[Rfam]
Rfam assigns this 75-nucleotide RNA from Crocodylus porosus to the family "Mammalian CPEB3 ribozyme". It scores 37 bits against the family's covariance model. The organism belongs to Crocodylus, within Eukaryota.
RNA sequence: AUCUCAAAUUUGAGGCCAUAGCAAAAGUGCUUAUGGCAUGGCCUGUCCGAUUCCAAUGAAUCUGUGAACUCCGUU
Numbered sequence: 001a002u003c004u005c006a007a008a009u010u011u012g013a014g015g016c017c018a019u020a021g022c023a024a025a026a027g028u029g030c031u032u033a034u035g036g037c038a039u040g041g042c043c044u045g046u047c048c049g050a051u052u053c054c055a056a057u058g059a060a061u062c063u064g065u066g067a068a069c070u071c072c073g074u075u
Stems, first nucleotide, its partner, number of pairs: 014043004020075003025070001027039003047064001049062005